[Rfam]
RNA: ZMP/ZTP riboswitch aptamer (pfl RNA motif)
Organism: Solirubrobacter pauli
RNA sequence: GCUGCGCGCCGUGACUGGCGCUCGGGUGGAAGUGACCACCGGGAAGCGGCGCGACCCUGAUCGCCGCGCGCCUGGGCACCAAUC
Numbered sequence: 001g002c003u004g005c006g007c008g009c010c011g012u013g014a015c016u017g018g019c020g021c022u023c024g025g026g027u028g029g030a031a032g033u034g035a036c037c038a039c040c041g042g043g044a045a046g047c048g049g050c051g052c053g054a055c056c057c058u059g060a061u062c063g064c065c066g067c068g069c070g071c072c073u074g075g076g077c078a079c080c081a082a083u084c
Base pairs, nucleotide, nucleotide: 005053006052007051008050009049010048011047012046015043016042017072018071019070020069021068026039027038028037029036063077064076065075